U11 spliceosomal RNA: a 130-nucleotide RNA from Capra hircus. The family's consensus secondary structure is taken from published work. Rfam classes the family as a spliceosomal small nuclear RNA. NCBI's taxonomy places the organism under Eukaryota, Bilateria, Eutheria, Caprinae, Capra. For this family Rfam cites "Identification of an evolutionarily divergent U11 small nuclear ribonucleoprotein particle in Drosophila" (Schneider et al., Proc Natl Acad Sci U S A, 2004). Gene Ontology terms of the family: pre-mRNA 5'-splice site binding, U11 snRNP and mRNA 5'-splice site recognition.

RNA sequence: AAAGGGGGUUUCUGUUAUGAGUGCUGCACAUAGGGCGGUUUGUUCUUCCUGAGAAUCGAUAUCAAGAAAUUUUGGAAGCAUAAUUUCUUUUGUACUUAGGCAGCUGGUAAUCAUCAGUCCUGGUACCUUA
Numbered sequence: 001a002a003a004g005g006g007g008g009u010u011u012c013u014g015u016u017a018u019g020a021g022u023g024c025u026g027c028a029c030a031u032a033g034g035g036c037g038g039u040u041u042g043u044u045c046u047u048c049c050u051g052a053g054a055a056u057c058g059a060u061a062u063c064a065a066g067a068a069a070u071u072u073u074g075g076a077a078g079c080a081u082a083a084u085u086u087c088u089u090u091u092g093u094a095c096u097u098a099g100g101c102a103g104c105u106g107g108u109a110a111u112c113a114u115c116a117g118u119c120c121u122g123g124u125a126c127c128u129u130a
Base pairs, nucleotide, nucleotide: 008079009078010077011076012075013026014025016023017022027051028050032046033045034044035043036042037041052073053072054071055070056069098128099127100126103124104123105122106121107120110118111117